Source information
Rfam assigns this 85-nucleotide RNA from Sulfurovum sp. AR to the family "c-di-GMP-I-GGC riboswitch aptamer". Rfam links the family to the GO term cyclic-di-GMP binding.
RNA sequence: CAGUAAAAAGCCAAACUUGUUGUGAAGCAGGGACGGAAAGCUACGGAUCUUAUUUUAUGUAGAUGAGAUAGCCGGGUUACCUUAA
Numbered sequence: 001c002a003g004u005a006a007a008a009a010g011c012c013a014a015a016c017u018u019g020u021u022g023u024g025a026a027g028c029a030g031g032g033a034c035g036g037a038a039a040g041c042u043a044c045g046g047a048u049c050u051u052a053u054u055u056u057a058u059g060u061a062g063a064u065g066a067g068a069u070a071g072c073c074g075g076g077u078u079a080c081c082u083u084a085a
Stems, first nucleotide, its partner, number of pairs: 003082001011036002016031006034071001039078004044074003047069007

The match comes from Rfam's covariance-model search (64 bits).